Nucleotides: 090
Stems, first nucleotide, its partner, number of pairs: 010089004016084001018053003022047009056064002066081006
Number, partner (000 for none) and nucleotide at each position: 001000c002000u003000u004000u005000u006000u007000g008000a009000u010089g011088a012087a013086g014000a015000g016084c017000a018053g019052g020051c021000g022047a023046u024045c025044a026043c027042c028041g029040g030039a031000u032000g033000u034000g035000g036000c037000u038000g039030u040029c041028c042027g043026g044025u045024g046023g047022u048000g049000g050000g051020g052019c053018u054000g055000g056064g057063c058000a059000u060000u061000a062000c063057g064056c065000a066081g067080c068079a069078g070077g071076c072000a073000a074000a075000a076071g077070c078069c079068u080067g081066u082000g083000g084016g085000a086013c087012u088011u089010c090000u
NiCo (Nickel/Cobalt) riboswitch aptamer: a 90-nucleotide RNA sequence from Thermanaerosceptrum fracticalcis. The match comes from Rfam's covariance-model search (41 bits). A reference for the family is Furukawa et al. (2015), "Bacterial riboswitches cooperatively bind Ni(2+) or Co(2+) ions and control expression of heavy metal transporters", Mol Cell. Gene Ontology terms of the family: metal ion homeostasis and cobalt ion binding.